[Rfam]
RNA sequence: AUGGUCUGGGGAAAGGCUCCUGUUGUGAGUGCAGUCUCGAACCAGGCAGCCCUACCCUGACUAAAGUAAAUUCCCAGGAGAAGUUUUUUUUGGGUUUUGAAUUUGCAGCAACGGGUUUGAACAUUCUAGUAGCAGUUUGAUGAUCAUGUAUGAUACUGCAAACAAGA
Numbered sequence: 001a002u003g004g005u006c007u008g009g010g011g012a013a014a015g016g017c018u019c020c021u022g023u024u025g026u027g028a029g030u031g032c033a034g035u036c037u038c039g040a041a042c043c044a045g046g047c048a049g050c051c052c053u054a055c056c057c058u059g060a061c062u063a064a065a066g067u068a069a070a071u072u073c074c075c076a077g078g079a080g081a082a083g084u085u086u087u088u089u090u091u092g093g094g095u096u097u098u099g100a101a102u103u104u105g106c107a108g109c110a111a112c113g114g115g116u117u118u119g120a121a122c123a124u125u126c127u128a129g130u131a132g133c134a135g136u137u138u139g140a141u142g143a144u145c146a147u148g149u150a151u152g153a154u155a156c157u158g159c160a161a162a163c164a165a166g167a
Stems, first nucleotide, its partner, number of pairs: 004061003008057003015051004019046004025042002027036002073094003076090005102162007110154001112152002118146003122142004128137003

Source information: Rfam assigns this 167-nucleotide sequence from Pipistrellus kuhlii to the family "Small Cajal body specific RNA 16". Rfam links the family to the GO terms RNA processing and nucleolus. The family has 37 seed sequences and 790 matches in Rfam 15.1. Taxonomically the source falls in Pipistrellus (Eukaryota, Dipnotetrapodomorpha, Tetrapoda, Boreoeutheria). The family's RNA type in Rfam is small Cajal body RNA. The match comes from Rfam's covariance-model search (151 bits).